Rfam assigns this 143-nucleotide RNA sequence from Epibacterium ulvae to the family "FMN riboswitch aptamer (RFN element)".
RNA sequence: CCUCGUUCUCAGGGCGGGGUGAAAUUCCCUACCGGCGGUAUAUGGAAACAUCCAUGAGCCCGCGAGCGGCCCCAAACGGGGUGUCAGCAGAUUUGGUGAAAAACCAAAGCCGACGGUUAUAGUCCGGAUGGAAGAGAACGAGU
Numbered sequence: 001c002c003u004c005g006u007u008c009u010c011a012g013g014g015c016g017g018g019g020u021g022a023a024a025u026u027c028c029c030u031a032c033c034g035g036c037g038g039u040a041u042a043u044g045g046a047a048a049c050a051u052c053c054a055u056g057a058g059c060c061c062g063c064g065a066g067c068g069g070c071c072c073c074a075a076a077c078g079g080g081g082u083g084u085c086a087g088c089a090g091a092u093u094u095g096g097u098g099a100a101a102a103a104c105c106a107a108a109g110c111c112g113a114c115g116g117u118u119a120u121a122g123u124c125c126g127g128a129u130g131g132a133a134g135a136g137a138a139c140g141a142g143u
Stems, first nucleotide, its partner, number of pairs: 003141008017029003031123002033112002035063004058110002066088002092108005114126003
Rfam describes the family as follows. The RFN element is a highly conserved domain that is found frequently in the 5'-untranslated regions of prokaryotic mRNAs that encode for flavin mononucleotide (FMN) biosynthesis and transport proteins. This element is a metabolite-dependent riboswitch that directly binds FMN in the absence of proteins. In Bacillus subtilis, the riboswitch most likely controls gene expression by causing premature transcription termination within the 5' untranslated region of the ribDEAHT operon and precluding access to the ribosome-binding site of ypaA mRNA.The FMN riboswitch structure, reported in present an FMN-bound six-stem junction, adopts a butterfly-like scaffold, stapled together by opposingly directed but nearly identically folded peripheral domains. The match comes from Rfam's covariance-model search (123 bits).